[Rfam]
Nucleotides: 114
Base pairs, nucleotide, nucleotide: 001114002113004111005110008107009106010105011104014101015100018097020095037077038076040074049063050062
Number, partner (000 for none) and nucleotide at each position: 001114g002113u003000u004111g005110g006000u007000u008107a009106u010105g011104g012000g013000g014101a015100c016000a017000u018097g019000a020095a021000a022000c023000c024000c025000a026000u027000a028000a029000c030000a031000g032000u033000a034000g035000g036000u037077g038076g039000g040074a041000a042000g043000a044000u045000u046000g047000u048000u049063g050062g051000g052000u053000c054000c055000c056000u057000g058000u059000g060000u061000g062050c063049c064000a065000u066000u067000g068000c069000a070000g071000g072000u073000g074040u075000g076038c077037u078000g079000a080000c081000c082000a083000u084000u085000g086000c087000a088000u089000u090000a091000c092000c093000a094000g095020u096000g097018c098000c099000a100015g101014u102000g103000a104011u105010u106009g107008u108000c109000u110005c111004u112000a113002a114001c

Record summary:
The record is a 114-nucleotide RNA from Ophiophagus hannah, which matches "Potassium channel RNA editing signal" in Rfam. The organism belongs to Ophiophagus, within Eukaryota. The family's RNA type in Rfam is cis-regulatory element. Rfam's curators write: This family represents a group of sequences related to the human potassium channel Kv1.1 hairpin element which directs the efficient modification of an adenosine to inosine by an adenosine deaminase acting on RNA (ADAR).